[Rfam]
RNA sequence: UUUGCCGUGAGGCAUGCAGUGAAGUAAGCCAGACUGCGGUGUCUGUACUGACGAACAGGAACCAUAUACGGAGGCUAUGAGGUCGGAUGAGGUGGCACAGCACACCGAAGUCCUAACCUUCCGCAAGGAAGGAAGCACCGAAGUAGUAGAUAUGGCAGGGAUAGACACAAGGAUAUUCAU
Numbered sequence: 001u002u003u004g005c006c007g008u009g010a011g012g013c014a015u016g017c018a019g020u021g022a023a024g025u026a027a028g029c030c031a032g033a034c035u036g037c038g039g040u041g042u043c044u045g046u047a048c049u050g051a052c053g054a055a056c057a058g059g060a061a062c063c064a065u066a067u068a069c070g071g072a073g074g075c076u077a078u079g080a081g082g083u084c085g086g087a088u089g090a091g092g093u094g095g096c097a098c099a100g101c102a103c104a105c106c107g108a109a110g111u112c113c114u115a116a117c118c119u120u121c122c123g124c125a126a127g128g129a130a131g132g133a134a135g136c137a138c139c140g141a142a143g144u145a146g147u148a149g150a151u152a153u154g155g156c157a158g159g160g161a162u163a164g165a166c167a168c169a170a171g172g173a174u175a176u177u178c179a180u
Stems, first nucleotide, its partner, number of pairs: 001016001003014004028180001031177002035173001040167006046160001048158003062155006074147003078143001081139003085113004091106004

Notes
A member of the RNA family "Group II catalytic intron D1-D4-3" from Mongoliitalea lutea, 180 nucleotides long. The match comes from Rfam's covariance-model search (88 bits). About the family: Group II introns are found in rRNA, tRNA and mRNA of organelles in fungi, plants and protists, and also in mRNA in bacteria.